[Rfam]
RNA sequence: GUCGUCGCGAGGCGGCGUGGGGAGGAAGCUGGAGGCAAAGUGCGGGGCCGACGUACAGGAACCGGAUACGAGGCCGCUGCGGGUGGGUAACCCGGCCGAAUACGGGGACGCCCGAUAGCCACCCGGAACGCGCGGCGGUAAAUCCGGCGGCGACCGCACGAAGGAUCAGUGU
Numbered sequence: 001g002u003c004g005u006c007g008c009g010a011g012g013c014g015g016c017g018u019g020g021g022g023a024g025g026a027a028g029c030u031g032g033a034g035g036c037a038a039a040g041u042g043c044g045g046g047g048c049c050g051a052c053g054u055a056c057a058g059g060a061a062c063c064g065g066a067u068a069c070g071a072g073g074c075c076g077c078u079g080c081g082g083g084u085g086g087g088u089a090a091c092c093c094g095g096c097c098g099a100a101u102a103c104g105g106g107g108a109c110g111c112c113c114g115a116u117a118g119c120c121a122c123c124c125g126g127a128a129c130g131c132g133c134g135g136c137g138g139u140a141a142a143u144c145c146g147g148c149g150g151c152g153a154c155c156g157c158a159c160g161a162a163g164g165a166u167c168a169g170u171g172u
Base pairs, nucleotide, nucleotide: 001016002015003014004013005012006011028172029171036164040159041158042157043156044155045154047151048150049149050148062147063146064145065144066143067142073139074138075137077135078134079133080132081131083129085113086112087111088110091106092105093104094103
Group II catalytic intron D1-D4-3: a 172-nucleotide RNA sequence from Limimonas halophila. The match comes from Rfam's covariance-model search (122 bits). The pairing is the family consensus, mapped onto this sequence.